[Rfam]
RNA sequence: CCAGCUGGACGACCUGCUGGUUGUAUCGAAUGGGGACGGCCUC
Numbered sequence: 001c002c003a004g005c006u007g008g009a010c011g012a013c014c015u016g017c018u019g020g021u022u023g024u025a026u027c028g029a030a031u032g033g034g035g036a037c038g039g040c041c042u043c
Stems, first nucleotide, its partner, number of pairs: 001020005007014002032043004

The family of this 43-nucleotide RNA sequence from Bifidobacterium tsurumiense is "Guanidine-II riboswitch aptamer (mini-ykkC)". Rfam describes the family as follows. Simpler in structure and has fewer highly conserved nucleotide positions than the ykkC-yxkD leader. Despite this each of its two stem-loop structures directly bind free guanidine. Therefore, mini-ykkC RNA motif represents a distinct class of guanidine-sensing RNAs. Its crystal structure was also determined. The match comes from Rfam's covariance-model search (34 bits). Pairs were carried over by alignment from the consensus structure, which is taken from published work. Rfam 15.1 lists 1,589 matches to the family in 1,229 species.